Nucleotides: 077
Stems, first nucleotide, its partner, number of pairs: 014046003018042003025036002028033001053076004060071003
Number, partner (000 for none) and nucleotide at each position: 001000u002000a003000u004000a005000u006000g007000c008000g009000a010000u011000g012000a013000a014046g015045c016044a017000a018042g019041a020040g021000g022000u023000a024000g025036c026035c027000g028033g029000a030000c031000u032000u033028u034000a035026g036025g037000g038000a039000a040020u041019u042018c043000u044016u045015g046014u047000g048000g049000a050000g051000u052000a053076u054075g055074c056073c057000a058000c059000a060071u061070c062069a063000a064000g065000a066000a067000u068000g069062u070061g071060g072000c073056g074055g075054c076053g077000g
Background
A member of the RNA family "S10-Clostridia ribosomal protein leader" from Clostridium bornimense, 77 nucleotides long. The family's consensus secondary structure is taken from published work. The literature on the family includes a 2020 paper in BMC Microbiol by Eckert and Weinberg, "Discovery of 20 novel ribosomal leader candidates in bacteria and archaea". NCBI's taxonomy places the organism under Bacteria, Bacillati, Bacillota, Clostridiaceae, Clostridium.